[Rfam]
RNA sequence: GCCAACAUGUUGCCUUUAUCUGCAUUUGCACCUGCACCUUACUUGUUUCUUUCUUUUGUUUUUGACUCCAAAACCAAAAGUAAGUUUGAAACAUUAAAACAAGCUUGAGGUGCAGGUGCAGGUGCAGGUGAAUGCCAUGUUGGU
Number, nucleotide and partner (000 for none) at each position: 001g144002c143003c142004a141005a140006c139007a138008u137009g136010u000011u000012g135013c134014c000015u132016u131017u130018a129019u128020c127021u126022g125023c124024a123025u122026u121027u120028g119029c118030a117031c116032c115033u114034g113035c112036a111037c110038c109039u108040u000041a000042c000043u000044u000045g000046u000047u000048u000049c000050u000051u000052u000053c000054u079055u078056u077057u076058g075059u000060u073061u072062u071063u070064g069065a000066c000067u000068c000069c064070a063071a062072a061073a060074c000075c058076a057077a056078a055079a054080g000081u000082a000083a000084g000085u000086u000087u000088g000089a000090a000091a000092c000093a000094u000095u000096a000097a000098a000099a000100c000101a000102a000103g000104c000105u000106u000107g000108a039109g038110g037111u036112g035113c034114a033115g032116g031117u030118g029119c028120a027121g026122g025123u024124g023125c022126a021127g020128g019129u018130g017131a016132a015133u000134g013135c012136c009137a008138u007139g006140u005141u004142g003143g002144u001

MIR530 microRNA precursor family: a 144-nucleotide RNA from Populus trichocarpa. Gene Ontology terms of the family: miRNA-mediated post-transcriptional gene silencing and RISC complex. The literature on the family includes a 2008 paper in Plant J by Lu et al., "Stress-responsive microRNAs in Populus". The organism belongs to Populus, within Eukaryota. It is one of the family's seed sequences.